[Rfam]
RNA sequence: ACGAACAGAACGAAAGCCUUUCAUAUAUGCGUGGGAAUAUGGCUCACGUGUCUCUACCGGGCCGCCGUAAACGGCCUGACUAUGAAGGCAGAAGACGCUGCU
Numbered sequence: 001a002c003g004a005a006c007a008g009a010a011c012g013a014a015a016g017c018c019u020u021u022c023a024u025a026u027a028u029g030c031g032u033g034g035g036a037a038u039a040u041g042g043c044u045c046a047c048g049u050g051u052c053u054c055u056a057c058c059g060g061g062c063c064g065c066c067g068u069a070a071a072c073g074g075c076c077u078g079a080c081u082a083u084g085a086a087g088g089c090a091g092a093a094g095a096c097g098c099u100g101c102u
Stems, first nucleotide, its partner, number of pairs: 018088008029049007058078007
RNA: Purine riboswitch aptamer